[Rfam]
RNA sequence: UGAUGAGGUAGAGGUUGCGGUGAUCAUGAGUAACUGGCGUAAGGUGGAAUAGCACCAAUGACCGUCAGCGAAAGGGAGAACUGCCGAAGCUGGCAGCGAACUAUUCAAGUUGCCUUGCUGGGGCUGCAUCGAACAGGUGCAGGACUGCCACAGCGAAACAAGCUGUGGAGCGCUAUCUUUUCA
Numbered sequence: 001u002g003a004u005g006a007g008g009u010a011g012a013g014g015u016u017g018c019g020g021u022g023a024u025c026a027u028g029a030g031u032a033a034c035u036g037g038c039g040u041a042a043g044g045u046g047g048a049a050u051a052g053c054a055c056c057a058a059u060g061a062c063c064g065u066c067a068g069c070g071a072a073a074g075g076g077a078g079a080a081c082u083g084c085c086g087a088a089g090c091u092g093g094c095a096g097c098g099a100a101c102u103a104u105u106c107a108a109g110u111u112g113c114c115u116u117g118c119u120g121g122g123g124c125u126g127c128a129u130c131g132a133a134c135a136g137g138u139g140c141a142g143g144a145c146u147g148c149c150a151c152a153g154c155g156a157a158a159c160a161a162g163c164u165g166u167g168g169a170g171c172g173c174u175a176u177c178u179u180u181u182c183a
Base pairs, nucleotide, nucleotide: 006178007177008176009175010174011173017084018083019082020081021080024077025076034068035067036066037065038064039063088119089118090117092114093113094112095111096110097109120146121145124142125141126140127139128138129137130136148168149167150166151165152164153163154162

Source information:
This 183-nucleotide RNA from Brevibacillus fulvus belongs to the Rfam family "Lysine riboswitch aptamer". It scores 117 bits against the family's covariance model.